[Rfam]
The record is a 143-nucleotide sequence from Erinaceus europaeus, which matches "Small nucleolar RNA SNORA43" in Rfam. Gene Ontology terms of the family: nucleolus and RNA processing. The source organism's lineage runs through Eukaryota, Deuterostomia, Chordata, Laurasiatheria and Erinaceus. ACA43 is a member of the H/ACA class of snoRNA that guide the sites of modification of uridines to pseudouridines.
RNA sequence: GAUGCCCUGUAGAUGUCGAUCCUUCGGCACCACAGACGCAGAUCCUGCUGCACCUGUGACCUCAGGGCAGAGAGGAAAGUGGCUAUUUCUACGCUCAGUGCUCAGACCAGUGGGCACUAAGAAUGGUUUGUAGCCUGACAUUU
Numbered sequence: 001g002a003u004g005c006c007c008u009g010u011a012g013a014u015g016u017c018g019a020u021c022c023u024u025c026g027g028c029a030c031c032a033c034a035g036a037c038g039c040a041g042a043u044c045c046u047g048c049u050g051c052a053c054c055u056g057u058g059a060c061c062u063c064a065g066g067g068c069a070g071a072g073a074g075g076a077a078a079g080u081g082g083c084u085a086u087u088u089c090u091a092c093g094c095u096c097a098g099u100g101c102u103c104a105g106a107c108c109a110g111u112g113g114g115c116a117c118u119a120a121g122a123a124u125g126g127u128u129u130g131u132a133g134c135c136u137g138a139c140a141u142u143u
Base pairs, nucleotide, nucleotide: 003069004068005067006066007065008064009063032057033056034055035054081135082134083133089126090125091124094121095120099116100115101114102113103112104111